[Rfam]
RNA sequence: GGGGCUGGCUGCGACACUGGUGUUCGCCACGGUCUUCAAAACCGCCUGGGAGGCGCGUGCCGUCUCCGCUAGGUUCGAUUCCUAGACAGUCCC
Numbered sequence: 001g002g003g004g005c006u007g008g009c010u011g012c013g014a015c016a017c018u019g020g021u022g023u024u025c026g027c028c029a030c031g032g033u034c035u036u037c038a039a040a041a042c043c044g045c046c047u048g049g050g051a052g053g054c055g056c057g058u059g060c061c062g063u064c065u066c067c068g069c070u071a072g073g074u075u076c077g078a079u080u081c082c083u084a085g086a087c088a089g090u091c092c093c
Base pairs, nucleotide, nucleotide: 001093002092003091004090005089006088007087009085011027012026013025014024016023017022030044031043032042033041049067050066051065052064053063070084071083072082073081
Rfam assigns this 93-nucleotide RNA sequence from Halalkalibacter oceani to the family "Selenocysteine transfer RNA". Clan: tRNA clan. On this family, see Mizutani and Goto, FEBS Lett 2000: "Eukaryotic selenocysteine tRNA has the 9/4 secondary structure".